[Rfam]
RNA sequence: CGGAGGACUGAGAAGGUGAGGCAGCCCAGUGCUGUGCUGUCUUCCACCGGUUAAGACCUCCGAGAGUGAAGGCCUGCCAAGGCGGAGGAUGUCCCUCUGCCACCCUUGGAGGGGCAGUGCUGUGCUGGCCAACAUUUA
Numbered sequence: 001c002g003g004a005g006g007a008c009u010g011a012g013a014a015g016g017u018g019a020g021g022c023a024g025c026c027c028a029g030u031g032c033u034g035u036g037c038u039g040u041c042u043u044c045c046a047c048c049g050g051u052u053a054a055g056a057c058c059u060c061c062g063a064g065a066g067u068g069a070a071g072g073c074c075u076g077c078c079a080a081g082g083c084g085g086a087g088g089a090u091g092u093c094c095c096u097c098u099g100c101c102a103c104c105c106u107u108g109g110a111g112g113g114g115c116a117g118u119g120c121u122g123u124g125c126u127g128g129c130c131a132a133c134a135u136u137u138a
Base pairs, nucleotide, nucleotide: 002061003060004059005058006057015048016047017046018045019042020041021040022039023038024037025036081130082129083128086126087125089123090122091121097117098116099115100114101113103112104111